Shown here is a 106-nucleotide RNA sequence, a member of the family "Y RNA". For this family Rfam cites "Caenorhabditis elegans embryos contain only one major species of Ro RNP" (Van Horn et al., RNA, 1995).
RNA sequence: GGCUGGUCCGAAGGCGGUGGGUUAGUCACAAUUGAUUGCUACAGUCAGUUACAGAACUCCUUGUUUCUUCUCUCCCCUCUCCCACCGCUGAACUUGACCAGCCUUU
Numbered sequence: 001g002g003c004u005g006g007u008c009c010g011a012a013g014g015c016g017g018u019g020g021g022u023u024a025g026u027c028a029c030a031a032u033u034g035a036u037u038g039c040u041a042c043a044g045u046c047a048g049u050u051a052c053a054g055a056a057c058u059c060c061u062u063g064u065u066u067c068u069u070c071u072c073u074c075c076c077c078u079c080u081c082c083c084a085c086c087g088c089u090g091a092a093c094u095u096g097a098c099c100a101g102c103c104u105u106u
Base pairs, nucleotide, nucleotide: 001103002102003101004100005099006098007097008096010095011094015090016086017085018084019083020082021081030069031068034065035064